[Rfam]
RNA: Metazoan signal recognition particle RNA
Organism: Urocynchramus pylzowi
RNA sequence: CCAAGGCGCGGUGGCACGUGCCUGUAGUCCCAGGGGACUGAGCCCGUGGAGGCUGAGCCUGAUGAAUUGCUGGAGCCCAGGAGCUCUGGGCUGCCGUGCUCUGUGCCGAGCAACAGAUCCCUCGGAUGUCCAAGCUAAGGCUGCCAUCAAUAUAGUGACAUAUGGGGAGCUGUGGGACACUGGGUUGACUAAAGGAGAGUGAACUGGCCCAGGCUGGAGAUGGAGCAGGUCAAAGCUGCAUCGUGGCAGACAGUAGUAGGAUCAUACCUGUGAAUAGCCAUGCCAGCGUAGCCUGAACAAUACAGAGACACAGAGACUCUU
Numbered sequence: 001c002c003a004a005g006g007c008g009c010g011g012u013g014g015c016a017c018g019u020g021c022c023u024g025u026a027g028u029c030c031c032a033g034g035g036g037a038c039u040g041a042g043c044c045c046g047u048g049g050a051g052g053c054u055g056a057g058c059c060u061g062a063u064g065a066a067u068u069g070c071u072g073g074a075g076c077c078c079a080g081g082a083g084c085u086c087u088g089g090g091c092u093g094c095c096g097u098g099c100u101c102u103g104u105g106c107c108g109a110g111c112a113a114c115a116g117a118u119c120c121c122u123c124g125g126a127u128g129u130c131c132a133a134g135c136u137a138a139g140g141c142u143g144c145c146a147u148c149a150a151u152a153u154a155g156u157g158a159c160a161u162a163u164g165g166g167g168a169g170c171u172g173u174g175g176g177a178c179a180c181u182g183g184g185u186u187g188a189c190u191a192a193a194g195g196a197g198a199g200u201g202a203a204c205u206g207g208c209c210c211a212g213g214c215u216g217g218a219g220a221u222g223g224a225g226c227a228g229g230u231c232a233a234a235g236c237u238g239c240a241u242c243g244u245g246g247c248a249g250a251c252a253g254u255a256g257u258a259g260g261a262u263c264a265u266a267c268c269u270g271u272g273a274a275u276a277g278c279c280a281u282g283c284c285a286g287c288g289u290a291g292c293c294u295g296a297a298c299a300a301u302a303c304a305g306a307g308a309c310a311c312a313g314a315g316a317c318u319c320u321u
Stems, first nucleotide, its partner, number of pairs: 001052002004023007028050003055319003059315002067308002070305003075298001078295004086291003090287004095282004101277004106272001123270003127266003130260002134257004139251001141249007148187004153182005159176001161174005195242002198237003205232005214223003
Dot-bracket structure: ((.(((((((......)))))))....(((.................)))))..(((.((......((.(((..(..((((....(((.((((.((((..((((.(................(((.(((((..((((.(.(((((((((((.(((((.(.(((((....))))).).))))).)))).......((.(((....(((((....(((....)))....)))))..)))...))))))))).)..)))).))...))).))).).)))).)))).)))).)))))))..)....))).)).....)).)))..